[Rfam]
The family of this 103-nucleotide RNA from Moraxella cuniculi is "Glycine riboswitch aptamer".

RNA sequence: UUGGCACAAUCUGGAGAGUACAAUUGUACACCGAAGGGAAGAAAAUUACCGCAGCGAUGCUAAAGUGAUUGAAAAUCUCAGGUCAAAGGACAGAUGGGGACUG
Numbered sequence: 001u002u003g004g005c006a007c008a009a010u011c012u013g014g015a016g017a018g019u020a021c022a023a024u025u026g027u028a029c030a031c032c033g034a035a036g037g038g039a040a041g042a043a044a045a046u047u048a049c050c051g052c053a054g055c056g057a058u059g060c061u062a063a064a065g066u067g068a069u070u071g072a073a074a075a076u077c078u079c080a081g082g083u084c085a086a087a088g089g090a091c092a093g094a095u096g097g098g099g100a101c102u103g
Stems, first nucleotide, its partner, number of pairs: 007097001009095005019028003030083003033079002037077002043070002

Annotation: The organism belongs to Moraxella cuniculi, within Bacteria. It scores 46 bits against the family's covariance model.